[Rfam]
RNA sequence: CGGUGUCCGUGAUGUUCCACAGUUACCUACAUUGUUCGAUCCUCGUGAGAACAGCGCUGGCUGAGACACUG
Numbered sequence: 001c002g003g004u005g006u007c008c009g010u011g012a013u014g015u016u017c018c019a020c021a022g023u024u025a026c027c028u029a030c031a032u033u034g035u036u037c038g039a040u041c042c043u044c045g046u047g048a049g050a051a052c053a054g055c056g057c058u059g060g061c062u063g064a065g066a067c068a069c070u071g
Stems, first nucleotide, its partner, number of pairs: 001071002004068004

The record is a 71-nucleotide RNA sequence from Equus asinus, which matches "Small nucleolar RNA SNORD34" in Rfam. It is annotated as a C/D-box small nucleolar RNA. Clan: SNORD34 clan. Rfam's curators write: snoRNA U34 is found in intron 5 of the ribosomal protein L13a gene in humans. NCBI's taxonomy places the organism under Eukaryota, Deuterostomia, Theria, Equidae, Equus. Rfam 15.1 lists 1,319 matches to the family in 583 species.